[Rfam]
RNA sequence: ACCGCAGUUGCGGUUAUAGGGUUCAGUUAUAUAAAGCCCCGAUUUAUCGGGGUUUUUUGUUAUCUGACUACAGAAUAACUGGGCUUUAGGCCCUUUUUUU
Numbered sequence: 001a002c003c004g005c006a007g008u009u010g011c012g013g014u015u016a017u018a019g020g021g022u023u024c025a026g027u028u029a030u031a032u033a034a035a036g037c038c039c040c041g042a043u044u045u046a047u048c049g050g051g052g053u054u055u056u057u058u059g060u061u062a063u064c065u066g067a068c069u070a071c072a073g074a075a076u077a078a079c080u081g082g083g084c085u086u087u088a089g090g091c092c093c094u095u096u097u098u099u100u
Stems, first nucleotide, its partner, number of pairs: 033056009081093004
Dot-bracket structure: ................................(((((((((......)))))))))........................((((.....)))).......